Overview: The record is a 134-nucleotide RNA from Oryzias sinensis, which matches "Small nucleolar RNA SNORA31" in Rfam. The literature on the family includes a 2001 paper in EMBO J by Huttenhofer et al., "RNomics: an experimental approach that identifies 201 candidates for novel, small, non-messenger RNAs in mouse". A search with the family's covariance model found it, with a score of 48 bits. The organism belongs to Oryzias, within Eukaryota. Gene Ontology terms of the family: RNA processing and nucleolus.
[Rfam]
RNA sequence: CUGCAUCUUUGACAGCCUGGGCUCUCAUCUGUUGGAGACACUGGGUUUUAAUUUUGUAGAUGCAAAAUCAAAUGUCCCCGCGCUUUCUGCUCGCCUCGUCUGUGGCGUCCCAGAUUGAAGAGGGGAGGACAGUU
Numbered sequence: 001c002u003g004c005a006u007c008u009u010u011g012a013c014a015g016c017c018u019g020g021g022c023u024c025u026c027a028u029c030u031g032u033u034g035g036a037g038a039c040a041c042u043g044g045g046u047u048u049u050a051a052u053u054u055u056g057u058a059g060a061u062g063c064a065a066a067a068u069c070a071a072a073u074g075u076c077c078c079c080g081c082g083c084u085u086u087c088u089g090c091u092c093g094c095c096u097c098g099u100c101u102g103u104g105g106c107g108u109c110c111c112a113g114a115u116u117g118a119a120g121a122g123g124g125g126a127g128g129a130c131a132g133u134u
Stems, first nucleotide, its partner, number of pairs: 002064007010050002014047007075126005083117001086114004092107004